Record summary: A member of the RNA family "Rhizobiales sRNA Atu_C7" from Rhizobium sp. RU36D, 141 nucleotides long. Taxonomically the source falls in Rhizobium (Bacteria, Alphaproteobacteria, Hyphomicrobiales, Rhizobiaceae). For this family Rfam cites "Deep sequencing uncovers numerous small RNAs on all four replicons of the plant pathogen Agrobacterium tumefaciens" (Wilms et al., RNA Biol, 2012). It is annotated as a small RNA.
[Rfam]
RNA sequence: CUGUGAUCAACAUUGAUCGCGUGGCGUAGACGUUUGUUCCCGUUCUCCUGGCGCAUCCAGGUGCCGCAGGUGUUCCUCCCUCGCCUGUUGGCGAUGCGCCCUCCUGCCUCGCUCGUCGUUCAUCGAAGAGCGAGGCUUUUU
Dot-bracket structure: .................................................((((((((........(((((((.........)))))))....)))))))).....(((((((((.((.......)).))))))))).....
Numbered sequence: 001c002u003g004u005g006a007u008c009a010a011c012a013u014u015g016a017u018c019g020c021g022u023g024g025c026g027u028a029g030a031c032g033u034u035u036g037u038u039c040c041c042g043u044u045c046u047c048c049u050g051g052c053g054c055a056u057c058c059a060g061g062u063g064c065c066g067c068a069g070g071u072g073u074u075c076c077u078c079c080c081u082c083g084c085c086u087g088u089u090g091g092c093g094a095u096g097c098g099c100c101c102u103c104c105u106g107c108c109u110c111g112c113u114c115g116u117c118g119u120u121c122a123u124c125g126a127a128g129a130g131c132g133a134g135g136c137u138u139u140u141u
Stems, first nucleotide, its partner, number of pairs: 050100008066088007106136009116126002